Glycine riboswitch aptamer: a 107-nucleotide RNA from Dactylosporangium sucinum. The match comes from Rfam's covariance-model search (60 bits). Its Rfam clan is "Glycine riboswitch clan". The organism belongs to Dactylosporangium, within Bacteria.

RNA sequence: AAUACCCGCGCGGGAGAGAUCGCCGUCCCGGAAAGGACGACAGACGGCGGCGCCGAAGGGGCAAAUCCUCCCCGGAACCUCUCAGGCAGAAGGACCGCGUCGGGUUG
Numbered sequence: 001a002a003u004a005c006c007c008g009c010g011c012g013g014g015a016g017a018g019a020u021c022g023c024c025g026u027c028c029c030g031g032a033a034a035g036g037a038c039g040a041c042a043g044a045c046g047g048c049g050g051c052g053c054c055g056a057a058g059g060g061g062c063a064a065a066u067c068c069u070c071c072c073c074g075g076a077a078c079c080u081c082u083c084a085g086g087c088a089g090a091a092g093g094a095c096c097g098c099g100u101c102g103g104g105u106u107g
Stems, first nucleotide, its partner, number of pairs: 006102001008100006020050008052087003055083002059081003066074001